[Rfam]
RNA sequence: UGCCCAAGGAAACCGGGGGAGAUGAGCUGGAGGCGAGCUGUGAAUCUCCUUCGCUCCCUUGGGCUACA
Numbered sequence: 001u002g003c004c005c006a007a008g009g010a011a012a013c014c015g016g017g018g019g020a021g022a023u024g025a026g027c028u029g030g031a032g033g034c035g036a037g038c039u040g041u042g043a044a045u046c047u048c049c050u051u052c053g054c055u056c057c058c059u060u061g062g063g064c065u066a067c068a
Base pairs, nucleotide, nucleotide: 002064003063004062005061006060007059008058009057017050018049019048020047021046022045023044026038027037030034